[Rfam]
RNA sequence: GGAGUUGAAGUUAUGAUUCUUGCAUAGUUCAGAUGAUAGUCGUCUCUGAUUUUUCUUAAGAGAAAUUAGUAUGUCGCUCAUAUUUGAUCUACUCC
Numbered sequence: 001g002g003a004g005u006u007g008a009a010g011u012u013a014u015g016a017u018u019c020u021u022g023c024a025u026a027g028u029u030c031a032g033a034u035g036a037u038a039g040u041c042g043u044c045u046c047u048g049a050u051u052u053u054u055c056u057u058a059a060g061a062g063a064a065a066u067u068a069g070u071a072u073g074u075c076g077c078u079c080a081u082a083u084u085u086g087a088u089c090u091a092c093u094c095c
Stems, first nucleotide, its partner, number of pairs: 004092002007089002
Small nucleolar RNA snR60/Z15/Z230/Z193/J17: a 95-nucleotide RNA sequence from Papaver nudicaule. The source organism's lineage runs through Eukaryota, Streptophytina, Embryophyta, Magnoliopsida and Papaver. Pairs were carried over by alignment from the consensus structure. The family has 23 seed sequences and 3,592 matches in Rfam 15.1. By type it is a C/D-box small nucleolar RNA. A search with the family's covariance model found it, with a score of 42 bits.